[Rfam]
RNA sequence: CCAUCACCACCAUCAUCCUGACUAGUCUUUCAGGCAGAUUGGUGCUGGAAGACUUUUAAGAUCUUCCAGUGGCGCGCAGAAUGUAGCAGAGAGCCCUCGGAAGAUUUCUUCCGGGGGUUUUUUUUU
Numbered sequence: 001c002c003a004u005c006a007c008c009a010c011c012a013u014c015a016u017c018c019u020g021a022c023u024a025g026u027c028u029u030u031c032a033g034g035c036a037g038a039u040u041g042g043u044g045c046u047g048g049a050a051g052a053c054u055u056u057u058a059a060g061a062u063c064u065u066c067c068a069g070u071g072g073c074g075c076g077c078a079g080a081a082u083g084u085a086g087c088a089g090a091g092a093g094c095c096c097u098c099g100g101a102a103g104a105u106u107u108c109u110u111c112c113g114g115g116g117g118u119u120u121u122u123u124u125u126u
Stems, first nucleotide, its partner, number of pairs: 008044003012039003017034005045069008088123016
Annotation
This 126-nucleotide RNA from Rouxiella badensis belongs to the Rfam family "Histidine operon leader". The match comes from Rfam's covariance-model search (108 bits). The base pairs follow the family's consensus structure, which is taken from published work. At least 6 amino acid operons are known to be regulated by attenuation. In each a leader sequence of 150-200 bp is found upstream of the first gene in the operon. This leader sequence can assume two different secondary structures known as the terminator and the anti-terminator structure. Taxonomically the source falls in Rouxiella (Bacteria, Pseudomonadota, Gammaproteobacteria, Yersiniaceae). Gene Ontology term of the family: histidine biosynthetic process. The literature on the family includes a 1982 paper in Annu Rev Genet by Kolter and Yanofsky, "Attenuation in amino acid biosynthetic operons".